[Rfam]
RNA sequence: GGUCACAGUGAUGACCACAUAAAAUUCAAGCUCAACAGACCCCAAUGCACCGUUUUCUCUCUUUGGGAAAUUACUUUGCGUGUCGACUGAGUCAUC
Dot-bracket structure: (((.((....................................................................................)).)))
Rfam assigns this 96-nucleotide sequence from Cajanus cajan to the family "Small nucleolar RNA Z107/R87". NCBI's taxonomy places the organism under Eukaryota, Viridiplantae, Embryophyta, Magnoliopsida, Cajanus. A reference for the family is Barneche et al. (2001), "Identification of 66 box C/D snoRNAs in Arabidopsis thaliana: extensive gene duplications generated multiple isoforms predicting new ribosomal RNA 2'-O-methylation sites", J Mol Biol. Rfam 15.1 lists 783 matches to the family in 221 species. Rfam links the family to the GO terms nucleolus and RNA processing.